[Rfam]
Nucleotides: 074
Base pairs, nucleotide, nucleotide: 005052006051007050008049017046018045019044020043022035023034024033025032026031
Number, partner (000 for none) and nucleotide at each position: 001000c002000c003000a004000c005052a006051c007050a008049g009000c010000a011000u012000u013000g014000c015000a016000c017046c018045c019044a020043g021000a022035g023034u024033u025032u026031g027000u028000c029000a030000c031026c032025a033024g034023a035022c036000a037000u038000u039000g040000c041000a042000c043020c044019u045018g046017g047000c048000a049008c050007u051006g052005u053000u054000a055000g056000g057000c058000u059000g060000u061000a062000a063000u064000u065000u066000a067000a068000g069000u070000g071000g072000u073000u074000u

A member of the RNA family "U1A polyadenylation inhibition element (PIE)" from Nannospalax galili, 74 nucleotides long.
The family's consensus secondary structure is taken from published work.
From the family's description: This family represents the U1A polyadenylation inhibition element (PIE).
A reference for the family is Clerte and Hall (2004), "Global and Local Dynamics of the U1A Polyadenylation Inhibition Element (PIE) RNA and PIE RNA-U1A Complexes", Biochemistry.
Rfam classes the family as a cis-regulatory element.